[Rfam]
The family of this 98-nucleotide RNA from Homo sapiens is "mir-641 microRNA precursor family". The base pairs follow the family's consensus structure, which was predicted with RNAalifold. Gene Ontology terms of the family: RISC complex and miRNA-mediated post-transcriptional gene silencing.

RNA sequence: UGGGUGAAAGGAAGGAAAGACAUAGGAUAGAGUCACCUCUGUCCUCUGUCCUCUACCUAUAGAGGUGACUGUCCUAUGUCUUUCCUUCCUCUUACCCC
Numbered sequence: 001u002g003g004g005u006g007a008a009a010g011g012a013a014g015g016a017a018a019g020a021c022a023u024a025g026g027a028u029a030g031a032g033u034c035a036c037c038u039c040u041g042u043c044c045u046c047u048g049u050c051c052u053c054u055a056c057c058u059a060u061a062g063a064g065g066u067g068a069c070u071g072u073c074c075u076a077u078g079u080c081u082u083u084c085c086u087u088c089c090u091c092u093u094a095c096c097c098c
Stems, first nucleotide, its partner, number of pairs: 002097006009090020031070012